[Rfam]
RNA sequence: CAAAUAUUUGGCAAUGAGGUCUGCCUUAAACCGUUCUAUCUAGAGCUAAUGACAUCUACUUUAAU
Numbered sequence: 001c002a003a004a005u006a007u008u009u010g011g012c013a014a015u016g017a018g019g020u021c022u023g024c025c026u027u028a029a030a031c032c033g034u035u036c037u038a039u040c041u042a043g044a045g046c047u048a049a050u051g052a053c054a055u056c057u058a059c060u061u062u063a064a065u
Base pairs, nucleotide, nucleotide: 010025011024012023013022016056017055019053020052021051033046034045035044036043
Rfam assigns this 65-nucleotide RNA sequence from Bizionia argentinensis to the family "Fluoride riboswitch aptamer (crcB RNA motif)". Rfam links the family to the GO terms response to fluoride and positive regulation of gene expression.